[Rfam]
RNA sequence: CUUCAUGGUGUCCUCAUUGUACAUGCUGUGUGUAUCUGCCACAUACACAGCGCAUGCAAUGUGGACAUAAUGGGG
Numbered sequence: 001c002u003u004c005a006u007g008g009u010g011u012c013c014u015c016a017u018u019g020u021a022c023a024u025g026c027u028g029u030g031u032g033u034a035u036c037u038g039c040c041a042c043a044u045a046c047a048c049a050g051c052g053c054a055u056g057c058a059a060u061g062u063g064g065a066c067a068u069a070a071u072g073g074g075g
Base pairs, nucleotide, nucleotide: 012064013063015061016060017059018058019057020056021055024052026050027049028048029047030046031045
RNA: mir-460 microRNA precursor family